[Rfam]
Nucleotides: 080
Stems, first nucleotide, its partner, number of pairs: 012077001013044006045063003049059003064076003
Number, partner (000 for none) and nucleotide at each position: 001000a002000u003000c004000a005000u006000g007000a008000u009000a010000c011000u012077u013044g014043u015042g016041c017040g018039c019000a020000g021000u022000c023000g024000a025000g026000a027000u028000u029000a030000g031000g032000u033000u034000c035000c036000a037000g038000a039018g040017c041016g042015u043014a044013c045063c046062c047061c048000u049059g050058c051057c052000g053000c054000g055000u056000g057051g058050g059049c060000a061047g062046g063045g064076u065075g066074g067000u068000g069000a070000g071000a072000u073000c074066c075065c076064a077012a078000u079000g080000u